[Rfam]
RNA: Guanidine-II riboswitch aptamer (mini-ykkC)
Organism: Ottowia flava
RNA sequence: CCGCGGGGACGACCCCGUGCGCCGCCAUCUGAUCCGGGGACGACCCCA
Numbered sequence: 001c002c003g004c005g006g007g008g009a010c011g012a013c014c015c016c017g018u019g020c021g022c023c024g025c026c027a028u029c030u031g032a033u034c035c036g037g038g039g040a041c042g043a044c045c046c047c048a
Stems, first nucleotide, its partner, number of pairs: 002019007036047004